[Rfam]
RNA sequence: UCGGUUCCGGUUCACGGCCCUGGCGAUGGCCAGGGGCGACCCGGCGACC
Numbered sequence: 001u002c003g004g005u006u007c008c009g010g011u012u013c014a015c016g017g018c019c020c021u022g023g024c025g026a027u028g029g030c031c032a033g034g035g036g037c038g039a040c041c042c043g044g045c046g047a048c049c
Stems, first nucleotide, its partner, number of pairs: 003049003007044004015038002018035006